[Rfam]
The family of this 91-nucleotide RNA from Halanaerobium praevalens is "pan motif". The family's RNA type in Rfam is cis-regulatory element. Lineage of the source: Bacteria > Bacillota > Clostridia > Halanaerobiales > Halanaerobium praevalens.

RNA sequence: GGGGCGGAACCUUAACUUUAAGAGCUGCACCCAAAAAACGCUGCUAAAUAAAACGUUUAGUCCACCUGGAUCAAUGGACUGGGAUGGGAGG
Numbered sequence: 001g002g003g004g005c006g007g008a009a010c011c012u013u014a015a016c017u018u019u020a021a022g023a024g025c026u027g028c029a030c031c032c033a034a035a036a037a038a039c040g041c042u043g044c045u046a047a048a049u050a051a052a053a054c055g056u057u058u059a060g061u062c063c064a065c066c067u068g069g070a071u072c073a074a075u076g077g078a079c080u081g082g083g084a085u086g087g088g089a090g091g
Base pairs, nucleotide, nucleotide: 001032002031003030004028005027006026007025011022012021013020014019062087063086064085065083066082067081068080069079071078072077